[Rfam]
RNA sequence: AAAUUCGAGUAAUCGCUGCAUAGCUUGACUAUGUAGAGGAAAGUCCAUGCUCACACGGAUCUGAGAUGACCGUAGUGUUCGUGCUUACUGAAAAAAUAAGGUAAGGCAAAGCUUAGCUUUGACGGCGGAAGAAAUGCCUAAGUCUUUGGAUAUGGCAUACACUUCCUGAAAGUGCCACAGUGACGAAGCUUGCGGGGAAACCUGCAAGGUGGAACGAGGUAAACCCCACGAGUGAGAAACCCAAAUUAUGGUAGGGGCACUCUCCAAAAGGAAAUGAACGGAUGGAGGGACGCACAAGUUUACUUUUGCGUAGAUAGAUGAUUACUGCCUGGCAGUACGAGGGCAUUGCCCGUUUGAGUACUCAGGAACAAAACAUGGCUUACUGAA
Dot-bracket structure: ...(((((((((((.((((((.........))))))....[[[.[[[[[(((((((((.((......)))))).....(((((((((((..........))))))(((((((...)))))).)((.((((....((((...(((....)))..)))).....)))).....(((((............((((((((....)))))))).........)))..))))))))))))))...(((...........)))...(((((((................)))))))(((((............)))))........))))))).((((..(((((...................))))))))).......]]]]]]]].).)))
Rfam assigns this 387-nucleotide sequence from Lysinibacillus odysseyi to the family "Bacterial RNase P class B". For this family Rfam cites "Ribonuclease P: unity and diversity in a tRNA processing ribozyme" (Frank and Pace, Annu Rev Biochem, 1998). Rfam describes the family as follows. Ribonuclease P (RNase P) is a ubiquitous endoribonuclease, found in archaea, bacteria and eukarya as well as chloroplasts and mitochondria. Its best characterised activity is the generation of mature 5'-ends of tRNAs by cleaving the 5'-leader elements of precursor-tRNAs. Cellular RNase Ps are ribonucleoproteins. RNA from bacterial RNase Ps retains its catalytic activity in the absence of the protein subunit, i.e. it is a ribozyme.